A member of the RNA family "malK-I RNA" from Anaerotruncus sp. G3(2012), 182 nucleotides long.
RNA sequence: UCAGGCCCCGGCCGGCUACUCCAUUUCCAUAGGCGGGAUGGGCCGUAAAAAAGGAGGAAUAUUUCCGUUUGGCCGACGGUGCGGCAGUGUGGAGACCUGUCGCAAGGUGUGUGGUGUUUUGCUCUCCAUGCAUGAAAGGAUGUUCGCGGGGGCGGUAUCCUUACGGCUUGUGCUCAAUGGCA
Numbered sequence: 001u002c003a004g005g006c007c008c009c010g011g012c013c014g015g016c017u018a019c020u021c022c023a024u025u026u027c028c029a030u031a032g033g034c035g036g037g038a039u040g041g042g043c044c045g046u047a048a049a050a051a052a053g054g055a056g057g058a059a060u061a062u063u064u065c066c067g068u069u070u071g072g073c074c075g076a077c078g079g080u081g082c083g084g085c086a087g088u089g090u091g092g093a094g095a096c097c098u099g100u101c102g103c104a105a106g107g108u109g110u111g112u113g114g115u116g117u118u119u120u121g122c123u124c125u126c127c128a129u130g131c132a133u134g135a136a137a138g139g140a141u142g143u144u145c146g147c148g149g150g151g152g153c154g155g156u157a158u159c160c161u162u163a164c165g166g167c168u169u170g171u172g173c174u175c176a177a178u179g180g181c182a
Stems, first nucleotide, its partner, number of pairs: 006042003012036003016032003065079004069170001071168005080104008089096002107133008136162008145154003
The base pairs follow the family's consensus structure, which is taken from published work. The source organism's lineage runs through Bacteria, Bacillota, Clostridia, Oscillospiraceae and Anaerotruncus.